[Rfam]
RNA sequence: AGUGCAUAUGAUGAUAAAAUAGACAGGGACAUCAGCACUCUGUAUGAGGAUGAUGAUUUGUCGAUGGGAAUCUCUCUGAUGCACU
Numbered sequence: 001a002g003u004g005c006a007u008a009u010g011a012u013g014a015u016a017a018a019a020u021a022g023a024c025a026g027g028g029a030c031a032u033c034a035g036c037a038c039u040c041u042g043u044a045u046g047a048g049g050a051u052g053a054u055g056a057u058u059u060g061u062c063g064a065u066g067g068g069a070a071u072c073u074c075u076c077u078g079a080u081g082c083a084c085u
Stems, first nucleotide, its partner, number of pairs: 002084005